[Rfam]
RNA: Purine riboswitch aptamer
RNA sequence: ACCAACUUAAUCGCACCGCCUCAUAUAAUCGCAGGGAUAUGGCCUGCAAGUAUCUACCGGUCUGCCGUAAACGGACUGACUAUGAGCAGCAACGGAACAGGA
Dot-bracket structure: ...................((((((...(.(((((.......))))).)........(((((((.......)))))))..))))))................
Numbered sequence: 001a002c003c004a005a006c007u008u009a010a011u012c013g014c015a016c017c018g019c020c021u022c023a024u025a026u027a028a029u030c031g032c033a034g035g036g037a038u039a040u041g042g043c044c045u046g047c048a049a050g051u052a053u054c055u056a057c058c059g060g061u062c063u064g065c066c067g068u069a070a071a072c073g074g075a076c077u078g079a080c081u082a083u084g085a086g087c088a089g090c091a092a093c094g095g096a097a098c099a100g101g102a
Stems, first nucleotide, its partner, number of pairs: 020086006029049001031047005058078007